[Rfam]
This 94-nucleotide RNA sequence from Actinidia chinensis belongs to the Rfam family "MIR2275 microRNA precursor family". Rfam 15.1 lists 785 matches to the family in 111 species. It scores 65 bits against the family's covariance model. Its family is annotated with RISC complex and miRNA-mediated post-transcriptional gene silencing in the Gene Ontology.
RNA sequence: AUGUCGUAGUUGAGAAUUGGAAGGAACUAAACUGAAUAGCGCUAAUAGUUUGGUGCAUUCUGUUUGGUUUCCUCCAAUAUCUCAUCUCCGACUU
Numbered sequence: 001a002u003g004u005c006g007u008a009g010u011u012g013a014g015a016a017u018u019g020g021a022a023g024g025a026a027c028u029a030a031a032c033u034g035a036a037u038a039g040c041g042c043u044a045a046u047a048g049u050u051u052g053g054u055g056c057a058u059u060c061u062g063u064u065u066g067g068u069u070u071c072c073u074c075c076a077a078u079a080u081c082u083c084a085u086c087u088c089c090g091a092c093u094u
Base pairs, nucleotide, nucleotide: 004091005090006089008087011084012083013082014081016078017077018076019075020074021073023071024070025069026068027067028066029065030064032062